[Rfam]
RNA sequence: GUGGAUUUGGAUUUAUGGCAGGCCCAUCACUGUGGGCCUCACAUAGUGCCCAUGCCAGAGCAAACUGUAGCCCCAAACCAUUGCCUGGCCUCCUUGCCCAUAGGCUGUGGGCACUGAAGCAGGUUGCACAGUG
Numbered sequence: 001g002u003g004g005a006u007u008u009g010g011a012u013u014u015a016u017g018g019c020a021g022g023c024c025c026a027u028c029a030c031u032g033u034g035g036g037c038c039u040c041a042c043a044u045a046g047u048g049c050c051c052a053u054g055c056c057a058g059a060g061c062a063a064a065c066u067g068u069a070g071c072c073c074c075a076a077a078c079c080a081u082u083g084c085c086u087g088g089c090c091u092c093c094u095u096g097c098c099c100a101u102a103g104g105c106u107g108u109g110g111g112c113a114c115u116g117a118a119g120c121a122g123g124u125u126g127c128a129c130a131g132u133g
Stems, first nucleotide, its partner, number of pairs: 001053002003050002006048001013046005020039003023035002068126005079116002084111002086107006
RNA: Small nucleolar RNA SNORA42/SNORA80 family